[Rfam]
Overview:
A member of the RNA family "Nuclear RNase P" from Panagrolaimus superbus, 292 nucleotides long. It scores 98 bits against the family's covariance model. The family's consensus secondary structure is taken from published work. The family is grouped with related families in Rfam's "RNaseP clan". The family's RNA type in Rfam is ribozyme.
RNA sequence: UUGCUUGUGAGAUGAUUUUAGGAGUUCUAAACGAGUAGUAUUAUACUUACUCAACCCUCAAUUUACUCCUGGGAAGGUCUGAGAUAUGCUCCUUUGAAUCCCUUAGGAAGGGAACGUUCGAGUUUGAACGUGAAACUGUACUGGAAGUGAUUAGUUUCCGCCAAAUUCUUGCAAAUGGAACAAGAAGCUUAAAAGUGGAUUCCCGUAAGAAUUUGUGCGUUCGAAAUACGGUUUCGAGCAGCGGUUUUAGUGCGAUAAUCAAAUAACCCAAUUCAGACUACUACACGAGCAA
Numbered sequence: 001u002u003g004c005u006u007g008u009g010a011g012a013u014g015a016u017u018u019u020a021g022g023a024g025u026u027c028u029a030a031a032c033g034a035g036u037a038g039u040a041u042u043a044u045a046c047u048u049a050c051u052c053a054a055c056c057c058u059c060a061a062u063u064u065a066c067u068c069c070u071g072g073g074a075a076g077g078u079c080u081g082a083g084a085u086a087u088g089c090u091c092c093u094u095u096g097a098a099u100c101c102c103u104u105a106g107g108a109a110g111g112g113a114a115c116g117u118u119c120g121a122g123u124u125u126g127a128a129c130g131u132g133a134a135a136c137u138g139u140a141c142u143g144g145a146a147g148u149g150a151u152u153a154g155u156u157u158c159c160g161c162c163a164a165a166u167u168c169u170u171g172c173a174a175a176u177g178g179a180a181c182a183a184g185a186a187g188c189u190u191a192a193a194a195g196u197g198g199a200u201u202c203c204c205g206u207a208a209g210a211a212u213u214u215g216u217g218c219g220u221u222c223g224a225a226a227u228a229c230g231g232u233u234u235c236g237a238g239c240a241g242c243g244g245u246u247u248u249a250g251u252g253c254g255a256u257a258a259u260c261a262a263a264u265a266a267c268c269c270a271a272u273u274c275a276g277a278c279u280a281c282u283a284c285a286c287g288a289g290c291a292a
Stems, first nucleotide, its partner, number of pairs: 001292004007286003013262001017258002020070005033052005038046001079276005088239004099113005114131006132235007156219001158217001
Dot-bracket structure: ((((..(((...[...[[.(((((........((((((.......).))))).............)))))........(((((....((((.......(((((.....)))))((((((......))))))(((((((.................(.(..........................................................).).........))))))))))).................]]...].........))))).......)))..))))